The family of this 68-nucleotide RNA sequence from Chrysochloris asiatica is "Selenocysteine insertion sequence 1". Rfam links the family to the GO term selenocysteine incorporation. Taxonomically the source falls in Chrysochloris (Eukaryota, Opisthokonta, Craniata, Sarcopterygii). The base pairs follow the family's consensus structure, which is taken from published work. Rfam classes the family as a cis-regulatory element. The match comes from Rfam's covariance-model search (36 bits).
RNA sequence: GACGCUUAAUGACAGGAAGGACUGAAAUGUCUUCUGGAUUCAUGGUCUUUCCCAGAACCUCUUGCGGC
Number, nucleotide and partner (000 for none) at each position: 001g068002a000003c066004g065005c064006u000007u000008a000009a000010u000011g000012a000013c000014a000015g052016g051017a050018a049019g048020g047021a046022c045023u044024g000025a000026a000027a000028u000029g039030u038031c037032u000033u000034c000035u000036g000037g031038a030039u029040u000041c000042a000043u000044g023045g022046u021047c020048u019049u018050u017051c016052c015053c000054a000055g000056a000057a000058c000059c000060u000061c000062u000063u000064g005065c004066g003067g000068c001